This 183-nucleotide part of an RNA from Fusarium falciforme belongs to the Rfam family "Ascomycota telomerase RNA". A search with the family's covariance model found it, with a score of 356 bits. Gene Ontology terms of the family: telomere maintenance via telomerase, telomerase activity and telomerase catalytic core complex. Pairs were carried over by alignment from the consensus structure. NCBI's taxonomy places the organism under Eukaryota, Opisthokonta, saccharomyceta, Fusarium, Fusarium solani species complex.
RNA sequence: CUCACCUGAAGGUGCCUAUAUACUGGACAGGGUCCAGAUGGCCCUAAAGGAUUCCUCGACUCUAACCUGAAAAGGCGAGCCUGAGAUGACAGGGUGGUUUUUAUGGAUGUCUUUUGUCCACCCGUUCACGUCCUCCGCAAUUCUUGCUACAAGAUGGAGAGAUUACAAAAACUGGUCCUUGUU
Numbered sequence: 001c002u003c004a005c006c007u008g009a010a011g012g013u014g015c016c017u018a019u020a021u022a023c024u025g026g027a028c029a030g031g032g033u034c035c036a037g038a039u040g041g042c043c044c045u046a047a048a049g050g051a052u053u054c055c056u057c058g059a060c061u062c063u064a065a066c067c068u069g070a071a072a073a074g075g076c077g078a079g080c081c082u083g084a085g086a087u088g089a090c091a092g093g094g095u096g097g098u099u100u101u102u103a104u105g106g107a108u109g110u111c112u113u114u115u116g117u118c119c120a121c122c123c124g125u126u127c128a129c130g131u132c133c134u135c136c137g138c139a140a141u142u143c144u145u146g147c148u149a150c151a152a153g154a155u156g157g158a159g160a161g162a163u164u165a166c167a168a169a170a171a172c173u174g175g176u177c178c179u180u181g182u183u
Base pairs, nucleotide, nucleotide: 007047010045011044012043014042015041016040053089054088055085056084057083058082060079061078066077068073106177107176108175109172110171112170113169114168115167116166117165131162132161133159134158135157136156142154143153144152145151